Description
MIR8024 microRNA precursor family: an 85-nucleotide RNA sequence from Solanum tuberosum.

RNA sequence: UUGGAGGUUUGAAGACUUUAACAUGCAAACUUGACAAAUUUAAAGACUUGAACUUCCAGAGUAAGAGGAUUUGAAUACUUCAACU
Numbered sequence: 001u002u003g004g005a006g007g008u009u010u011g012a013a014g015a016c017u018u019u020a021a022c023a024u025g026c027a028a029a030c031u032u033g034a035c036a037a038a039u040u041u042a043a044a045g046a047c048u049u050g051a052a053c054u055u056c057c058a059g060a061g062u063a064a065g066a067g068g069a070u071u072u073g074a075a076u077a078c079u080u081c082a083a084c085u
Stems, first nucleotide, its partner, number of pairs: 001083006008075006016067004024058002027055001031052002034049001
The organism belongs to Solanum, within Eukaryota. Gene Ontology terms of the family: RISC complex and miRNA-mediated post-transcriptional gene silencing.